[Rfam]
RNA sequence: UGAUCUCGUGCGGGAGAGCACCCACACCAACCCAGUGUGGGUCACCGAAGGAGCAACUCCUCUCCGACAAACUCUCAGGUCCCCGUACCGCACGGGCCAG
Numbered sequence: 001u002g003a004u005c006u007c008g009u010g011c012g013g014g015a016g017a018g019c020a021c022c023c024a025c026a027c028c029a030a031c032c033c034a035g036u037g038u039g040g041g042u043c044a045c046c047g048a049a050g051g052a053g054c055a056a057c058u059c060c061u062c063u064c065c066g067a068c069a070a071a072c073u074c075u076c077a078g079g080u081c082c083c084c085g086u087a088c089c090g091c092a093c094g095g096g097c098c099a100g
Stems, first nucleotide, its partner, number of pairs: 006095008020042007044080003047076002051074003058066001
A member of the RNA family "Glycine riboswitch aptamer" from Kibdelosporangium phytohabitans, 100 nucleotides long. NCBI's taxonomy places the organism under Bacteria, Actinomycetota, Pseudonocardiales, Pseudonocardiaceae, Kibdelosporangium. The match comes from Rfam's covariance-model search (63 bits).